RNA: narK RNA
RNA sequence: GGCGCGUGACUUGCUAGGAACACCUCAAGAGCAAUCAACGCUGAUUGCCCACACACGACAAAGGCGCCGU
Number, nucleotide and partner (000 for none) at each position: 001g000002g000003c000004g000005c000006g000007u000008g000009a000010c000011u000012u000013g000014c000015u000016a000017g000018g000019a000020a000021c000022a000023c000024c000025u000026c000027a000028a000029g000030a000031g048032c047033a046034a045035u044036c043037a000038a000039c000040g000041c000042u000043g036044a035045u034046u033047g032048c031049c000050c000051a000052c000053a000054c000055a000056c000057g000058a000059c000060a000061a000062a000063g000064g000065c000066g000067c000068c000069g000070u000